[Rfam]
RNA sequence: CUCCCCGAAAUGGCUUGAGGGUCAGCCUUGCUGGGAGGCAGCUGGAGGUAGAGCACCGUUUCGGUGCGGGGGCGUUGGCCUACCAAGCCGAGGCGAACUCCGAAUGCUGGCUGCUGGUCGGCAGGAGUGAGACCUGGGGCGAAAAGGUUCUGGGUCGAGAGGGGAACAGCCCAGACCGCCGGCUAAGGUCCCCAAGUCCGGGCUGAGUGGUCAAGGAGGUGCGGGUGCGCAGACAACCAGGAGGUUGGCUUAGAAGCAGCCAUCCUUGAAAGAGUGCGUAACAGCUCACUGGUCGAGCGCCCGUGCGCCGAAAAUGACGCGGGGCGAAGCCCGGCACCGAAGCCGCGGGUCGCGCGCUGCGGGAGGCGGCGUGCGGCGGUAGGGGAGCGUCGGCGUCGGCGGGGAAGGUGCGGCGGGAGCCGUGCUGGAGCGGCGCCGAGUGCGAAU
Numbered sequence: 001c002u003c004c005c006c007g008a009a010a011u012g013g014c015u016u017g018a019g020g021g022u023c024a025g026c027c028u029u030g031c032u033g034g035g036a037g038g039c040a041g042c043u044g045g046a047g048g049u050a051g052a053g054c055a056c057c058g059u060u061u062c063g064g065u066g067c068g069g070g071g072g073c074g075u076u077g078g079c080c081u082a083c084c085a086a087g088c089c090g091a092g093g094c095g096a097a098c099u100c101c102g103a104a105u106g107c108u109g110g111c112u113g114c115u116g117g118u119c120g121g122c123a124g125g126a127g128u129g130a131g132a133c134c135u136g137g138g139g140c141g142a143a144a145a146g147g148u149u150c151u152g153g154g155u156c157g158a159g160a161g162g163g164g165a166a167c168a169g170c171c172c173a174g175a176c177c178g179c180c181g182g183c184u185a186a187g188g189u190c191c192c193c194a195a196g197u198c199c200g201g202g203c204u205g206a207g208u209g210g211u212c213a214a215g216g217a218g219g220u221g222c223g224g225g226u227g228c229g230c231a232g233a234c235a236a237c238c239a240g241g242a243g244g245u246u247g248g249c250u251u252a253g254a255a256g257c258a259g260c261c262a263u264c265c266u267u268g269a270a271a272g273a274g275u276g277c278g279u280a281a282c283a284g285c286u287c288a289c290u291g292g293u294c295g296a297g298c299g300c301c302c303g304u305g306c307g308c309c310g311a312a313a314a315u316g317a318c319g320c321g322g323g324g325c326g327a328a329g330c331c332c333g334g335c336a337c338c339g340a341a342g343c344c345g346c347g348g349g350u351c352g353c354g355c356g357c358u359g360c361g362g363g364a365g366g367c368g369g370c371g372u373g374c375g376g377c378g379g380u381a382g383g384g385g386a387g388c389g390u391c392g393g394c395g396u397c398g399g400c401g402g403g404g405a406a407g408g409u410g411c412g413g414c415g416g417g418a419g420c421c422g423u424g425c426u427g428g429a430g431c432g433g434c435g436c437c438g439a440g441u442g443c444g445a446a447u
Base pairs, nucleotide, nucleotide: 001387002386003385004384005383006382011024012023013022014021015020026127027125028124029123030122031121032120033119036118037115038114039113040112041111042110043109044108045107051101052099053098057095058094059093061091062090063089064088068084069083070081071080072079073078131156132155133154134153135152136151137150138149139148140147161172162171163170176348177347178346179345181344182343183342187338188337189336196335198334199333200332201331202330203329215309216308219306220305221304222303223302224301225300226299227298228297236293237292238291239290240289242266243265244264247261248260249259267271272287276285277284349377350376351375352374353373354372355371356370357369358368359367360366388442390439391438392437393436394435395434396433399431400430407426408425409424410423411422412421413420414419
The family of this 447-nucleotide part of an RNA from Thermomicrobium roseum is "Bacterial large subunit ribosomal RNA".
It is one of the family's seed sequences.
The organism belongs to Thermomicrobium roseum, within Bacteria.